[Rfam]
RNA sequence: AGCCUCAUUCUAGAUGAAAAUGGACACUGUUGCUCAUGGUGUCCAGAAAUUGUUAAUGUGGCUGCAUUGAGAACACAGGUUAUAUUUCCAUCACAGUAACUUUAUUGUAGUGGUGACAAUGAGAUCUGUAACAUAA
Numbered sequence: 001a002g003c004c005u006c007a008u009u010c011u012a013g014a015u016g017a018a019a020a021u022g023g024a025c026a027c028u029g030u031u032g033c034u035c036a037u038g039g040u041g042u043c044c045a046g047a048a049a050u051u052g053u054u055a056a057u058g059u060g061g062c063u064g065c066a067u068u069g070a071g072a073a074c075a076c077a078g079g080u081u082a083u084a085u086u087u088c089c090a091u092c093a094c095a096g097u098a099a100c101u102u103u104a105u106u107g108u109a110g111u112g113g114u115g116a117c118a119a120u121g122a123g124a125u126c127u128g129u130a131a132c133a134u135a136a
Stems, first nucleotide, its partner, number of pairs: 002062003006058003021045007075129005089115006
Rfam assigns this 136-nucleotide RNA from Myotis lucifugus to the family "Small nucleolar RNA SNORA1". Rfam's curators put it in the seed alignment. From the family's description: ACA1 is a member of the H/ACA class of snoRNA that guide the sites of modification of uridines to pseudouridines. The base pairs follow the family's consensus structure, which was predicted with PFOLD. Its family is annotated with nucleolus and RNA processing in the Gene Ontology.